The record is a 77-nucleotide RNA from Pelodiscus sinensis, which matches "mir-2188 microRNA precursor family" in Rfam.
Pairs were carried over by alignment from the consensus structure, which was predicted with RNAalifold.
A search with the family's covariance model found it, with a score of 84 bits.
RNA sequence: ACCUGUGGGAAAGGUCCAACCUCACAUGUCCUGUAUGUACGGAAGGGGAUAUAUGUGGUCAGACCUGUCCCACAGGC
Numbered sequence: 001a002c003c004u005g006u007g008g009g010a011a012a013g014g015u016c017c018a019a020c021c022u023c024a025c026a027u028g029u030c031c032u033g034u035a036u037g038u039a040c041g042g043a044a045g046g047g048g049a050u051a052u053a054u055g056u057g058g059u060c061a062g063a064c065c066u067g068u069c070c071c072a073c074a075g076g077c
Base pairs, nucleotide, nucleotide: 002076004074005073006072007071008070009069010068012066013065014064015063016062019059020058021057023055024054026052027051028050030048031047032046